The family of this 115-nucleotide RNA from Carnobacterium maltaromaticum is "23S methyl RNA motif". The match comes from Rfam's covariance-model search (67 bits). The family's RNA type in Rfam is cis-regulatory element.
RNA sequence: AGUUCAUUCGUUUUUAUCAGAGAUCCAUCAGAUUCUGAUAAAAGUUAGUGAGUGAGAAUGUGCUUCACUAACGUAUCAUUUCGCAGUGCUAGACACCGAAGUGAUGCGUUUUUUU
Numbered sequence: 001a002g003u004u005c006a007u008u009c010g011u012u013u014u015u016a017u018c019a020g021a022g023a024u025c026c027a028u029c030a031g032a033u034u035c036u037g038a039u040a041a042a043a044g045u046u047a048g049u050g051a052g053u054g055a056g057a058a059u060g061u062g063c064u065u066c067a068c069u070a071a072c073g074u075a076u077c078a079u080u081u082c083g084c085a086g087u088g089c090u091a092g093a094c095a096c097c098g099a100a101g102u103g104a105u106g107c108g109u110u111u112u113u114u115u
Stems, first nucleotide, its partner, number of pairs: 002053007010045013070110014086096003